L17 ribosomal protein downstream element: a 72-nucleotide sequence from Lacticaseibacillus paracasei. It is annotated as a cis-regulatory element. It scores 44 bits against the family's covariance model.

RNA sequence: GGAGCGUUACGAUGAUGGCAGGCCCAGUUCCUGCUUAGUCUAGCUUGAGAGCACCGGGCAACCGGUUGUCUC
Numbered sequence: 001g002g003a004g005c006g007u008u009a010c011g012a013u014g015a016u017g018g019c020a021g022g023c024c025c026a027g028u029u030c031c032u033g034c035u036u037a038g039u040c041u042a043g044c045u046u047g048a049g050a051g052c053a054c055c056g057g058g059c060a061a062c063c064g065g066u067u068g069u070c071u072c
Base pairs, nucleotide, nucleotide: 002046003045004044005043011040012039013038017035018034019033020032021031022030047072048071049070050069053066054065055064